[Rfam]
RNA sequence: AGGGCGCUACGCUUAUUCGGCCUGGCAUUGAACACAGAUAAAAAGGCGCAGGCGACUGCGCCUUUUUU
Numbered sequence: 001a002g003g004g005c006g007c008u009a010c011g012c013u014u015a016u017u018c019g020g021c022c023u024g025g026c027a028u029u030g031a032a033c034a035c036a037g038a039u040a041a042a043a044a045g046g047c048g049c050a051g052g053c054g055a056c057u058g059c060g061c062c063u064u065u066u067u068u
Base pairs, nucleotide, nucleotide: 003018004017006013041066042065043064044063045062046061047060048059049058050057051056
RNA: Salmonella enterica sRNA STnc40
Organism: Salmonella enterica